[Rfam]
RNA sequence: UGGCAAGAUGUUGGCAUAGCUGAAGUAUCCACUAGAAAUCAGCUCUGCUACAUACUGCCGUG
Numbered sequence: 001u002g003g004c005a006a007g008a009u010g011u012u013g014g015c016a017u018a019g020c021u022g023a024a025g026u027a028u029c030c031a032c033u034a035g036a037a038a039u040c041a042g043c044u045c046u047g048c049u050a051c052a053u054a055c056u057g058c059c060g061u062g
Stems, first nucleotide, its partner, number of pairs: 002059003008053004013049003019043005